The family of this 52-nucleotide RNA sequence is "Glutamine riboswitch aptamer (glnA leader)". Gene Ontology term of the family: glutamine binding.
RNA sequence: CACGUUCAUCCACUUAGGACGGAAGUAGACUACUCAGUCGAAGGAACGCAUU
Numbered sequence: 001c002a003c004g005u006u007c008a009u010c011c012a013c014u015u016a017g018g019a020c021g022g023a024a025g026u027a028g029a030c031u032a033c034u035c036a037g038u039c040g041a042a043g044g045a046a047c048g049c050a051u052u
Base pairs, nucleotide, nucleotide: 003048004047005046006045007044009019010018011017022049028039029038030037